[Rfam]
RNA: Purine riboswitch aptamer
Organism: Loigolactobacillus backii
RNA sequence: AGCAAUUUUUUCCGGCAAACUUAUAUAAAUGUCUAAUAAUGGAGACAAGUUUCUACCCAGAACCGUAAAUUCUGGACUAUAAGUGAAGACGCUUCUUUA
Number, nucleotide and partner (000 for none) at each position: 001a000002g000003c000004a000005a000006u000007u000008u000009u000010u000011u000012c000013c000014g000015g000016c000017a000018a000019a084020c083021u082022u081023a080024u079025a078026u000027a000028a000029a000030u047031g046032u045033c044034u043035a000036a000037u000038a000039a000040u000041g000042g000043a034044g033045a032046c031047a030048a000049g000050u000051u000052u000053c000054u000055a000056c000057c075058c074059a073060g072061a071062a070063c000064c000065g000066u000067a000068a000069a000070u062071u061072c060073u059074g058075g057076a000077c000078u025079a024080u023081a022082a021083g020084u019085g000086a000087a000088g000089a000090c000091g000092c000093u000094u000095c000096u000097u000098u000099a000